[Rfam]
Nucleotides: 080
Base pairs, nucleotide, nucleotide: 003078004077005076006075007074008073009072011070012069013068014067015066016065017064018063019062020060021059022058023057025055026054027053028052030050031049032048033047034046
Number, partner (000 for none) and nucleotide at each position: 001000c002000c003078c004077c005076g006075g007074u008073g009072c010000c011070c012069g013068c014067u015066u016065u017064u018063u019062c020060a021059g022058u023057a024000g025055u026054u027053u028052g029000a030050a031049a032048c033047c034046a035000g036000a037000g038000a039000u040000g041000a042000u043000a044000g045000u046034u047033g048032g049031u050030u051000a052028c053027a054026a055025a056000g057023u058022a059021u060020u061000u062019g063018a064017a065016a066015a067014g068013g069012c070011g071000u072009g073008c074007a075006c076005u077004g078003g079000g080000u